[Rfam]
Annotation: Bacterial RNase P class A: a 399-nucleotide sequence from Longimycelium tulufanense. Rfam classes the family as a ribozyme. A search with the family's covariance model found it, with a score of 290 bits. Ribonuclease P (RNase P) is a ubiquitous endoribonuclease, found in archaea, bacteria and eukarya as well as chloroplasts and mitochondria. Its best characterised activity is the generation of mature 5'-ends of tRNAs by cleaving the 5'-leader elements of precursor-tRNAs. Cellular RNase Ps are ribonucleoproteins. RNA from bacterial RNase Ps retains its catalytic activity in the absence of the protein subunit, i.e. it is a ribozyme.
RNA sequence: CGAGCUGACCGGGCGGCCGCGUCGGCACGCUCUGGCGUGUCGCCGAGGAAAGUCCGGACUCCACAGGGCAGGGUGGUUGUUAACGGCAACCCGGGGCGACCCGCGGGACAGUGCCACAGAAAGCAGACCGCCCGGCGAUGCGUCGGGUAAGGGUGAAAGGGUGGUGUAAGAGACCACCAGUAUCCCGGGUGACCGGGAUGGCUCGGUAAACCCCACCCGGAGCAAGGCCAAAAGGGCGCCGCGUGCGGUGCCUGCGCAGGCGAUCGAGGGUGGCCCGCCCGAUGCCUGCGGGUAGGCCGCUCGAGCCUGCCGGCGACGGCAGGCCUAGAUGGAUGGCCGCCGAACGGGGCUCCGCAAGGACCCCGGGAACAGGAUCCGGCUUACAGGUCAGCUCGUCCG
Numbered sequence: 001c002g003a004g005c006u007g008a009c010c011g012g013g014c015g016g017c018c019g020c021g022u023c024g025g026c027a028c029g030c031u032c033u034g035g036c037g038u039g040u041c042g043c044c045g046a047g048g049a050a051a052g053u054c055c056g057g058a059c060u061c062c063a064c065a066g067g068g069c070a071g072g073g074u075g076g077u078u079g080u081u082a083a084c085g086g087c088a089a090c091c092c093g094g095g096g097c098g099a100c101c102c103g104c105g106g107g108a109c110a111g112u113g114c115c116a117c118a119g120a121a122a123g124c125a126g127a128c129c130g131c132c133c134g135g136c137g138a139u140g141c142g143u144c145g146g147g148u149a150a151g152g153g154u155g156a157a158a159g160g161g162u163g164g165u166g167u168a169a170g171a172g173a174c175c176a177c178c179a180g181u182a183u184c185c186c187g188g189g190u191g192a193c194c195g196g197g198a199u200g201g202c203u204c205g206g207u208a209a210a211c212c213c214c215a216c217c218c219g220g221a222g223c224a225a226g227g228c229c230a231a232a233a234g235g236g237c238g239c240c241g242c243g244u245g246c247g248g249u250g251c252c253u254g255c256g257c258a259g260g261c262g263a264u265c266g267a268g269g270g271u272g273g274c275c276c277g278c279c280c281g282a283u284g285c286c287u288g289c290g291g292g293u294a295g296g297c298c299g300c301u302c303g304a305g306c307c308u309g310c311c312g313g314c315g316a317c318g319g320c321a322g323g324c325c326u327a328g329a330u331g332g333a334u335g336g337c338c339g340c341c342g343a344a345c346g347g348g349g350c351u352c353c354g355c356a357a358g359g360a361c362c363c364c365g366g367g368a369a370c371a372g373g374a375u376c377c378g379g380c381u382u383a384c385a386g387g388u389c390a391g392c393u394c395g396u397c398c399g
Stems, first nucleotide, its partner, number of pairs: 001395010011384001012341007020045002023042006050382003054379005059222004066276004071218005076090005091105001092103004106213002111211002113207003128152002130148008160178006180202001181200008226298004256289006268280004305324008